[Rfam]
The record is a 101-nucleotide sequence from Anaerosporomusa subterranea, which matches "THF (Tetrahydrofolate) riboswitch aptamer" in Rfam. Pairs were carried over by alignment from the consensus structure, which is taken from published work. The source organism's lineage runs through Bacteria, Bacillati, Bacillota, Acetonemataceae and Anaerosporomusa. From the family's description: Tetrahydrofolate (THF) riboswitch was first reported for Ames et al. as an RNA motif in 5' untranslated (5'-UTR)regions of folate transport and biosynthesis genes in Firmicutes genomes.
RNA sequence: GGCAGAGUAGGAAAUUGUGCGUUAAGUGCUAGCUGGACAGGAAGUUGCCGCUAGACGAAAGAUCACUUUGAUUUGCGGUGCAAUUUCCGCAUUCCGCUGCC
Number, nucleotide and partner (000 for none) at each position: 001g101002g100003c099004a098005g097006a000007g000008u000009a000010g088011g087012a086013a085014a084015u083016u082017g081018u080019g079020c077021g076022u075023u000024a000025a000026g056027u055028g000029c054030u053031a052032g051033c050034u000035g049036g048037a000038c000039a000040g094041g093042a092043a000044g090045u000046u000047g000048c036049c035050g033051c032052u031053a030054g029055a027056c026057g000058a000059a000060a074061g073062a072063u071064c000065a000066c000067u000068u000069u000070g000071a063072u062073u061074u060075g022076c021077g020078g000079u019080g018081c017082a016083a015084u014085u013086u012087c011088c010089g000090c044091a000092u042093u041094c040095c000096g000097c005098u004099g003100c002101c001